This 69-nucleotide sequence from Trichonephila clavipes belongs to the Rfam family "mir-29 microRNA precursor family". The match comes from Rfam's covariance-model search (52 bits).
[Rfam]
RNA sequence: GAAACCUGAUCUCAGAUGGUGGGUAGAUGGGAAUGGAAAUUGUCUAGCACCAUUUGAAAUCAGCGCUUC
Numbered sequence: 001g002a003a004a005c006c007u008g009a010u011c012u013c014a015g016a017u018g019g020u021g022g023g024u025a026g027a028u029g030g031g032a033a034u035g036g037a038a039a040u041u042g043u044c045u046a047g048c049a050c051c052a053u054u055u056g057a058a059a060u061c062a063g064c065g066c067u068u069c
Base pairs, nucleotide, nucleotide: 001069002068003067006063007062008061009060010059012057013056014055016053017052018051019050020049021048024046025045026044027043
Background
From the family's description: This family represents the microRNA (miRNA) precursors mir-29. On this family, see Ambros, Cell 2001: "microRNAs: tiny regulators with great potential".